Overview
The family of this 108-nucleotide sequence from Piliocolobus tephrosceles is "Y RNA". The family's consensus secondary structure is taken from published work. Rfam classes the family as a non-coding RNA gene.
[Rfam]
RNA sequence: GGCUCGUCCGAAGGUAGUGGGUUAUCUCAAUUGAUUGUUCACAGUUACAGAUCGAACUUGUUCUACUUCCUCCUGCCCCUUCUCACUACUGCACUUGACUAGUCUUUA
Numbered sequence: 001g002g003c004u005c006g007u008c009c010g011a012a013g014g015u016a017g018u019g020g021g022u023u024a025u026c027u028c029a030a031u032u033g034a035u036u037g038u039u040c041a042c043a044g045u046u047a048c049a050g051a052u053c054g055a056a057c058u059u060g061u062u063c064u065a066c067u068u069c070c071u072c073c074u075g076c077c078c079c080u081u082c083u084c085a086c087u088a089c090u091g092c093a094c095u096u097g098a099c100u101a102g103u104c105u106u107u108a
Base pairs, nucleotide, nucleotide: 001104002103003102004101006099007098008097010096011095014092015091016087017086018085019084020083021082043067044066

About this RNA:
The literature on the family includes a 2000 paper in Nucleic Acids Res by Teunissen et al., "Conserved features of Y RNAs: a comparison of experimentally derived secondary structures". It scores 62 bits against the family's covariance model.